[Rfam]
RNA sequence: AGACUGGGUAAUCUCUGCAGGCAACUGUGAUGGUGUGUUUAUAAAUCUCACAAUCACCUGGAGAGAUUCUGCAGUCU
Numbered sequence: 001a002g003a004c005u006g007g008g009u010a011a012u013c014u015c016u017g018c019a020g021g022c023a024a025c026u027g028u029g030a031u032g033g034u035g036u037g038u039u040u041a042u043a044a045a046u047c048u049c050a051c052a053a054u055c056a057c058c059u060g061g062a063g064a065g066a067u068u069c070u071g072c073a074g075u076c077u
Stems, first nucleotide, its partner, number of pairs: 003075004010068007020059002024054001026052005

A member of the RNA family "mir-216 microRNA precursor family" from Gadus morhua, 77 nucleotides long. The match comes from Rfam's covariance-model search (62 bits). A reference for the family is Lim et al. (2003), "Vertebrate microRNA genes", Science.